A member of the RNA family "L31-Actinobacteria ribosomal protein leader", 52 nucleotides long. Pairs were carried over by alignment from the consensus structure, which is taken from published work. Rfam's curators put it in the seed alignment. The family's RNA type in Rfam is cis-regulatory leader.
RNA sequence: CAGGUUCCGGUUCACGUCCGAUUUACCAGCACGAUCUGGCGACCCGGCGACC
Numbered sequence: 001c002a003g004g005u006u007c008c009g010g011u012u013c014a015c016g017u018c019c020g021a022u023u024u025a026c027c028a029g030c031a032c033g034a035u036c037u038g039g040c041g042a043c044c045c046g047g048c049g050a051c052c
Base pairs, nucleotide, nucleotide: 003052004051005050007047008046009045010044015041016040017039018038020036021035022034023033